Shown here is a 121-nucleotide RNA from Dipodomys ordii, a member of the family "Small nucleolar RNA SNORA26". It is annotated as an H/ACA-box small nucleolar RNA. Rfam links the family to the GO terms RNA processing and nucleolus. Its Rfam clan is "SNORA27 clan". On this family, see Huttenhofer et al., EMBO J 2001: "RNomics: an experimental approach that identifies 201 candidates for novel, small, non-messenger RNAs in mouse". From the family's description: The snoRNA HBI-6 belong to the H/ACA family of snoRNAs, guiding the pseudouridylation of position U4522 if the 28S rRNA. HBI-6 is the human orthologue of mouse MBI-6 snoRNA.
RNA sequence: GUGUCCUUUUAAGGUUGACCUGUGUCUUAAGAGGCUAACACAGAAGGGUAAAUGAAAUCUCCAUAAAACCCAGAGAUGAGAUGGUGACACUCCUCUUUGGAUCCUGUCUGGAGUUACAGCU
Numbered sequence: 001g002u003g004u005c006c007u008u009u010u011a012a013g014g015u016u017g018a019c020c021u022g023u024g025u026c027u028u029a030a031g032a033g034g035c036u037a038a039c040a041c042a043g044a045a046g047g048g049u050a051a052a053u054g055a056a057a058u059c060u061c062c063a064u065a066a067a068a069c070c071c072a073g074a075g076a077u078g079a080g081a082u083g084g085u086g087a088c089a090c091u092c093c094u095c096u097u098u099g100g101a102u103c104c105u106g107u108c109u110g111g112a113g114u115u116a117c118a119g120c121u
Base pairs, nucleotide, nucleotide: 002050003049004048005047006046007045008044009043010042014039015038016037017036019034020031057115059113060112061111062110063109070100071099072098073097074096075095076094078092079091080090082089083088